[Rfam]
RNA sequence: CGUCCGGCAGGAGAUGGCGUUCCUCCUUUAACCGCAGCGAACUCAUUGCUGCUGAUGACGCCUACAGACAC
Numbered sequence: 001c002g003u004c005c006g007g008c009a010g011g012a013g014a015u016g017g018c019g020u021u022c023c024u025c026c027u028u029u030a031a032c033c034g035c036a037g038c039g040a041a042c043u044c045a046u047u048g049c050u051g052c053u054g055a056u057g058a059c060g061c062c063u064a065c066a067g068a069c070a071c
Stems, first nucleotide, its partner, number of pairs: 010026004016062006034052007
Dot-bracket structure: .........[[[[..((((((.]]]].......(((((((.....)))))))....)))))).........

The family of this 71-nucleotide RNA from a Parvibaculaceae bacterium is "Fluoride riboswitch aptamer (crcB RNA motif)". The family has 289 seed sequences and 2,293 matches in Rfam 15.1. The organism belongs to Parvibaculaceae, within Bacteria.